Shown here is a 107-nucleotide RNA from Myceligenerans xiligouense, a member of the family "SAM riboswitch aptamer (S box leader)".

RNA sequence: CACCCAUCCAGAGCGGCCGAGAGACCUGGCUCGACGACGCCGCAGCAACCACCCCCGUCCCGGGGGCACGGUGCUCAAUGCCAGGUGCGAUGGAGCUGAGAUGACUG
Numbered sequence: 001c002a003c004c005c006a007u008c009c010a011g012a013g014c015g016g017c018c019g020a021g022a023g024a025c026c027u028g029g030c031u032c033g034a035c036g037a038c039g040c041c042g043c044a045g046c047a048a049c050c051a052c053c054c055c056c057g058u059c060c061c062g063g064g065g066g067c068a069c070g071g072u073g074c075u076c077a078a079u080g081c082c083a084g085g086u087g088c089g090a091u092g093g094a095g096c097u098g099a100g101a102u103g104a105c106u107g
Stems, first nucleotide, its partner, number of pairs: 001107002005103004013043005021032003028081001044075004049071002052066003079099001082098003086094001